Bacillaceae-1 RNA: a 68-nucleotide RNA from Tumebacillus algifaecis.
The organism belongs to Tumebacillus, within Bacteria.
By type it is a small RNA.
Pairs were carried over by alignment from the consensus structure, which is taken from published work.
RNA sequence: CACAGCAGUAGAUUGGCUACUCGUUACGACGUCCUGUCGCGACGCCGAUCGACUGUACAUCCUGUACG
Dot-bracket structure: ..........(((((((.........((((.....))))....)))))))...(((((.....)))))